[Rfam]
RNA sequence: GCAAACCCGUGCACCGUGGUCUCUGCCCGAAGCGACCCUGGCGUACUUCCCCAACGCCAGGUUCGUGUCUUCGGACAGGGACCUCGGUGCAGGGGCGGCGCCUG
Numbered sequence: 001g002c003a004a005a006c007c008c009g010u011g012c013a014c015c016g017u018g019g020u021c022u023c024u025g026c027c028c029g030a031a032g033c034g035a036c037c038c039u040g041g042c043g044u045a046c047u048u049c050c051c052c053a054a055c056g057c058c059a060g061g062u063u064c065g066u067g068u069c070u071u072c073g074g075a076c077a078g079g080g081a082c083c084u085c086g087g088u089g090c091a092g093g094g095g096c097g098g099c100g101c102c103u104g
Base pairs, nucleotide, nucleotide: 010091011090012089013088014087015086016085018083019082021080022079023078024077025076027074028073029072030071031070033065034064035063037061038060039059040058041057042056043055044054
Record summary
The record is a 104-nucleotide RNA from Mycobacterium tuberculosis, which matches "mraW RNA" in Rfam. Lineage of the source: Bacteria > Actinomycetota > Actinomycetes > Mycobacteriales > Mycobacterium tuberculosis. It is one of the family's seed sequences. By type it is a cis-regulatory element. Pairs were carried over by alignment from the consensus structure, which is taken from published work.